[Rfam]
RNA sequence: UACGCAGGGAUAUGUGUGUAUCGGCUGACACUUAGUAAUGCACUUUGACCGAAAGAGUUCUCUGCUAAACUGUGAAAGAGUUCUCUGCUAAACUGUGUAUUGGAAAAGAUGAGCAAUUGUGUUUUAUUCUUGUUGAAAUCUUUCAACAAUCAUCUUCCUUACAUUU
Numbered sequence: 001u002a003c004g005c006a007g008g009g010a011u012a013u014g015u016g017u018g019u020a021u022c023g024g025c026u027g028a029c030a031c032u033u034a035g036u037a038a039u040g041c042a043c044u045u046u047g048a049c050c051g052a053a054a055g056a057g058u059u060c061u062c063u064g065c066u067a068a069a070c071u072g073u074g075a076a077a078g079a080g081u082u083c084u085c086u087g088c089u090a091a092a093c094u095g096u097g098u099a100u101u102g103g104a105a106a107a108g109a110u111g112a113g114c115a116a117u118u119g120u121g122u123u124u125u126a127u128u129c130u131u132g133u134u135g136a137a138a139u140c141u142u143u144c145a146a147c148a149a150u151c152a153u154c155u156u157c158c159u160u161a162c163a164u165u166u
Stems, first nucleotide, its partner, number of pairs: 004065007016043006102160002106156007117146003
Rfam assigns this 166-nucleotide RNA from Ipomoea nil to the family "small nucleolar RNA snoR135". By type it is an H/ACA-box small nucleolar RNA. On this family, see Chen and Wu, Nucleic Acids Res 2009: "Mining small RNA sequencing data: a new approach to identify small nucleolar RNAs in Arabidopsis". The source organism's lineage runs through Eukaryota, Magnoliopsida, eudicotyledons, Solanales and Ipomoea. The base pairs follow the family's consensus structure, which was predicted with RNAalifold.